The record is a 48-nucleotide RNA sequence, which matches "Xanthine riboswitch aptamer (NMT1 RNA)" in Rfam.

RNA sequence: CACGCGAGUAGAAGCGGUCAGGGCGCAGCCCGGGACAUUGCUCGGCAA
Numbered sequence: 001c002a003c004g005c006g007a008g009u010a011g012a013a014g015c016g017g018u019c020a021g022g023g024c025g026c027a028g029c030c031c032g033g034g035a036c037a038u039u040g041c042u043c044g045g046c047a048a
Base pairs, nucleotide, nucleotide: 005044006043007042008041009040010039015033018035019034021031022030023029024028
Its family is annotated with purine nucleobase binding in the Gene Ontology.